About this RNA:
The family of this 76-nucleotide RNA from Hucho hucho is "mir-196 microRNA precursor family". The match comes from Rfam's covariance-model search (58 bits). A reference for the family is Lim et al. (2003), "Vertebrate microRNA genes", Science.
[Rfam]
RNA sequence: AGCGUGGCGGUGGCAGCCUCAUGCUGUGGGGAUGUUUUUCAGCAGCCCCACAGCAUGAGGCUGCCACCGCCAUGCU
Numbered sequence: 001a002g003c004g005u006g007g008c009g010g011u012g013g014c015a016g017c018c019u020c021a022u023g024c025u026g027u028g029g030g031g032a033u034g035u036u037u038u039u040c041a042g043c044a045g046c047c048c049c050a051c052a053g054c055a056u057g058a059g060g061c062u063g064c065c066a067c068c069g070c071c072a073u074g075c076u
Stems, first nucleotide, its partner, number of pairs: 003074017022055010